[Rfam]
Shown here is a 199-nucleotide sequence from Triticum aestivum, a member of the family "MIR1435 microRNA precursor family". A search with the family's covariance model found it, with a score of 104 bits. The family has 3 seed sequences and 1,765 matches in Rfam 15.1. Gene Ontology terms of the family: RISC complex and miRNA-mediated post-transcriptional gene silencing.
RNA sequence: UAGUUUUGUUUUAAGUCAAACUUUGUAAGUUUUGGCCACAUUUAUAUUAAAAAUAUCAACAUAUACAAUACCAAAUAAAUAAAAAUAUGCAAACAUAUUCCUUGGUGGAUCUAAUAAUAUCCAUUUGGAAUUGUGAAUGUUGAUAUUUUUUCUAUAAACUUGGUCAAACAUCACAAAGUUUGACUUGAGGCGAACCUAA
Number, nucleotide and partner (000 for none) at each position: 001u000002a000003g000004u000005u194006u193007u192008g191009u190010u000011u188012u187013a186014a185015g184016u183017c182018a181019a180020a179021c178022u177023u176024u175025g174026u173027a000028a000029g000030u000031u168032u167033u166034g165035g164036c000037c000038a000039c000040a000041u000042u000043u000044a000045u154046a153047u000048u000049a000050a150051a149052a148053a000054u145055a144056u143057c000058a141059a140060c139061a138062u137063a000064u135065a134066c133067a132068a000069u000070a000071c128072c127073a126074a125075a124076u123077a000078a000079a000080u000081a000082a000083a000084a000085a000086u000087a000088u000089g000090c000091a000092a000093a000094c000095a000096u000097a000098u000099u000100c000101c000102u000103u000104g000105g000106u000107g000108g000109a000110u000111c000112u000113a000114a000115u000116a000117a000118u000119a000120u000121c000122c000123a076124u075125u074126u073127g072128g071129a000130a000131u000132u067133g066134u065135g064136a000137a062138u061139g060140u059141u058142g000143a056144u055145a054146u000147u000148u052149u051150u050151u000152c000153u046154a045155u000156a000157a000158a000159c000160u000161u000162g000163g000164u035165c034166a033167a032168a031169c000170a000171u000172c000173a026174c025175a024176a023177a022178g021179u020180u019181u018182g017183a016184c015185u014186u013187g012188a011189g000190g009191c008192g007193a006194a005195c000196c000197u000198a000199a000